The family of this 171-nucleotide sequence is "FMN riboswitch aptamer (RFN element)". Rfam links the family to the GO term FMN binding. The RFN element is a highly conserved domain that is found frequently in the 5'-untranslated regions of prokaryotic mRNAs that encode for flavin mononucleotide (FMN) biosynthesis and transport proteins. It scores 78 bits against the family's covariance model.

RNA sequence: ACCGUGCUCCGGGGUCGGUGAGAAUCCGAACCGGCGGUUAUAGUCCGCGAACUGCGGUGCUCCUGGCAGCAAUGCCAUCCAGCGCCAAGGUUGAUUCGGUGAAAUUCCGAGACCGACGGUCAUGAGGGUUUGCUUGUGUUCCCUCAGAAGUCCGGAUGAGAGGUGCACGCG
Numbered sequence: 001a002c003c004g005u006g007c008u009c010c011g012g013g014g015u016c017g018g019u020g021a022g023a024a025u026c027c028g029a030a031c032c033g034g035c036g037g038u039u040a041u042a043g044u045c046c047g048c049g050a051a052c053u054g055c056g057g058u059g060c061u062c063c064u065g066g067c068a069g070c071a072a073u074g075c076c077a078u079c080c081a082g083c084g085c086c087a088a089g090g091u092u093g094a095u096u097c098g099g100u101g102a103a104a105u106u107c108c109g110a111g112a113c114c115g116a117c118g119g120u121c122a123u124g125a126g127g128g129u130u131u132g133c134u135u136g137u138g139u140u141c142c143c144u145c146a147g148a149a150g151u152c153c154g155g156a157u158g159a160g161a162g163g164u165g166c167a168c169g170c171g
Base pairs, nucleotide, nucleotide: 003169004168005167006166007165009163010162016028017027018026032115033114034048035047036046037045043113044112051091052090053089095111096110097109098108099107117154118153119152